[Rfam]
Annotation: The record is an 80-nucleotide RNA sequence from Hermetia illucens, which matches "drz-agam-1 ribozyme" in Rfam. The base pairs follow the family's consensus structure, which is taken from published work. A search with the family's covariance model found it, with a score of 40 bits. On this family, see Webb et al., Science 2009: "Widespread occurrence of self-cleaving ribozymes".
Nucleotides: 080
Stems, first nucleotide, its partner, number of pairs: 013080003017076001019074002022034003046066001048064005054059001
Number, partner (000 for none) and nucleotide at each position: 001000g002000u003000a004000c005000u006000a007000c008000c009000a010000a011000a012000c013080c014079c015078u016000a017076c018000c019074u020073c021000u022034a023033u024032c025000u026000c027000c028000a029000c030000g031000u032024g033023g034022u035000g036000a037000u038000c039000g040000c041000a042000g043000g044000g045000a046066g047000u048064u049063u050062u051061u052060u053000c054059u055000u056000c057000a058000u059054g060052a061051a062050a063049a064048a065000c066046u067000g068000c069000a070000g071000a072000c073020g074019g075000a076017g077000a078015a079014g080013g